[Rfam]
RNA sequence: AUACCUUUCUCGGCCUUUUGGCUAAGAUCAAGUGUAGUAUCUGUUCUUAUCAGUUCAAUAUCUGAUACGUAGGCCAUUGGCUUACAUGAUAUUAAAUUUAUUUUUCUAGUGGGAAAGCUCACCACAGUAGCUUGCUACUAGAGCUUUCGCGCGUCGCCCAAGCGUUGCACUAUAGCUUUGGCCUGUUGCACCGCAA
Numbered sequence: 001a002u003a004c005c006u007u008u009c010u011c012g013g014c015c016u017u018u019u020g021g022c023u024a025a026g027a028u029c030a031a032g033u034g035u036a037g038u039a040u041c042u043g044u045u046c047u048u049a050u051c052a053g054u055u056c057a058a059u060a061u062c063u064g065a066u067a068c069g070u071a072g073g074c075c076a077u078u079g080g081c082u083u084a085c086a087u088g089a090u091a092u093u094a095a096a097u098u099u100a101u102u103u104u105u106c107u108a109g110u111g112g113g114a115a116a117g118c119u120c121a122c123c124a125c126a127g128u129a130g131c132u133u134g135c136u137a138c139u140a141g142a143g144c145u146u147u148c149g150c151g152c153g154u155c156g157c158c159c160a161a162g163c164g165u166u167g168c169a170c171u172a173u174a175g176c177u178u179u180g181g182c183c184u185g186u187u188g189c190a191c192c193g194c195a196a
Stems, first nucleotide, its partner, number of pairs: 008027003012023004048067006069085007113148008127138004151189003155185002158180001160178004